[Rfam]
Rfam assigns this 87-nucleotide RNA sequence from Jaculus jaculus to the family "mir-7 microRNA precursor family". From the family's description: This family represents the microRNA (miRNA) precursor mir-7.
RNA sequence: UGGUCCGGUGCUGUGUGGAAGACUAGUGAUUUUGUUGUUCUGGUCUAGCACGACAACAAGUCACAGCCGGCCUCAUAGCGCGGAUUC
Numbered sequence: 001u002g003g004u005c006c007g008g009u010g011c012u013g014u015g016u017g018g019a020a021g022a023c024u025a026g027u028g029a030u031u032u033u034g035u036u037g038u039u040c041u042g043g044u045c046u047a048g049c050a051c052g053a054c055a056a057c058a059a060g061u062c063a064c065a066g067c068c069g070g071c072c073u074c075a076u077a078g079c080g081c082g083g084a085u086u087c
Stems, first nucleotide, its partner, number of pairs: 002086005008081002011078005017072002021068001023066002026064007034057006
NCBI's taxonomy places the organism under Eukaryota, Opisthokonta, Teleostomi, Tetrapoda, Jaculus.
Its family is annotated with RISC complex and miRNA-mediated post-transcriptional gene silencing in the Gene Ontology.
A search with the family's covariance model found it, with a score of 70 bits.
Pairs were carried over by alignment from the consensus structure, which was predicted with PFOLD.
On this family, see Lagos-Quintana et al., Science 2001: "Identification of novel genes coding for small expressed RNAs".